[Rfam]
RNA: Purine riboswitch aptamer
Organism: Paenibacillus yonginensis
RNA sequence: UUCUGACAAUUCAAUAGUAUUCGUAUAAUUCCGGGAAUUGGCCCGGAAGUUUCUACGAGGUCACCGUAAAUGAUCUGGCUACGAAGUGAGAAGACGCGCGC
Numbered sequence: 001u002u003c004u005g006a007c008a009a010u011u012c013a014a015u016a017g018u019a020u021u022c023g024u025a026u027a028a029u030u031c032c033g034g035g036a037a038u039u040g041g042c043c044c045g046g047a048a049g050u051u052u053c054u055a056c057g058a059g060g061u062c063a064c065c066g067u068a069a070a071u072g073a074u075c076u077g078g079c080u081a082c083g084a085a086g087u088g089a090g091a092a093g094a095c096g097c098g099c100g101c
Base pairs, nucleotide, nucleotide: 020085021084022083023082024081025080029048030047031046032045033044034043035042058076059075060074061073062072063071